[Rfam]
RNA: mir-2 microRNA precursor family
Organism: Drosophila willistoni
RNA sequence: UAACUCUUCAAGGGGGUUGUGAAAUGUUGCCAUUUUAUUCAACUCAUAUCACAGCCAUUUUGAUGAGUUUCG
Numbered sequence: 001u002a003a004c005u006c007u008u009c010a011a012g013g014g015g016g017u018u019g020u021g022a023a024a025u026g027u028u029g030c031c032a033u034u035u036u037a038u039u040c041a042a043c044u045c046a047u048a049u050c051a052c053a054g055c056c057a058u059u060u061u062g063a064u065g066a067g068u069u070u071c072g
Stems, first nucleotide, its partner, number of pairs: 005066002008063006015056008025048003